RNA sequence: AAAAAAGUAAACCCUGAGUUUCUAUGUCCAACUUUGACUGUUCGUGUUAUAUAAAUUUUUUUUAUAAUUCGUAUUUUCAUUAUUGUUAGAUGAUAAAACAUGAUUAAUAUUUUAUGCGUGACUUGUCUUUUUAAUUUUUUUCAUAUUUUUUUCAAAUAAGACUGACGGUUAAAGGUUGGGCACGGAAACC
Numbered sequence: 001a002a003a004a005a006a007g008u009a010a011a012c013c014c015u016g017a018g019u020u021u022c023u024a025u026g027u028c029c030a031a032c033u034u035u036g037a038c039u040g041u042u043c044g045u046g047u048u049a050u051a052u053a054a055a056u057u058u059u060u061u062u063u064a065u066a067a068u069u070c071g072u073a074u075u076u077u078c079a080u081u082a083u084u085g086u087u088a089g090a091u092g093a094u095a096a097a098a099c100a101u102g103a104u105u106a107a108u109a110u111u112u113u114a115u116g117c118g119u120g121a122c123u124u125g126u127c128u129u130u131u132u133a134a135u136u137u138u139u140u141u142c143a144u145a146u147u148u149u150u151u152u153c154a155a156a157u158a159a160g161a162c163u164g165a166c167g168g169u170u171a172a173a174g175g176u177u178g179g180g181c182a183c184g185g186a187a188a189c190c
Stems, first nucleotide, its partner, number of pairs: 027180006033173010044162002047159004
Annotation:
MIR812 microRNA precursor family: a 190-nucleotide RNA from Oryza nivara. Lineage of the source: Eukaryota > Viridiplantae > Magnoliopsida > Oryzeae > Oryza.